[Rfam]
RNA sequence: CUAACUUGCAUUGCUCUUGCAUUGCACGAAAAUUGCCUAAUGUAAAGCGGCUUUUAGGCAAUUUUCGUGCAAUGCAAGAGCAAUGCAAGUUAG
Numbered sequence: 001c002u003a004a005c006u007u008g009c010a011u012u013g014c015u016c017u018u019g020c021a022u023u024g025c026a027c028g029a030a031a032a033u034u035g036c037c038u039a040a041u042g043u044a045a046a047g048c049g050g051c052u053u054u055u056a057g058g059c060a061a062u063u064u065u066c067g068u069g070c071a072a073u074g075c076a077a078g079a080g081c082a083a084u085g086c087a088a089g090u091u092a093g
Base pairs, nucleotide, nucleotide: 001093002092003091004090006089007087008086009085010084011083012082013081014080015079016078019075021073022072023071024070025069026068027067028066029065030064031063032062033061034060035059036058037057038056039055040054
Shown here is a 93-nucleotide sequence from Photinus pyralis, a member of the family "mir-33 microRNA precursor family".
It scores 56 bits against the family's covariance model.
Rfam links the family to the GO terms gene silencing by miRNA and RISC complex.
The organism belongs to Photinus, within Eukaryota.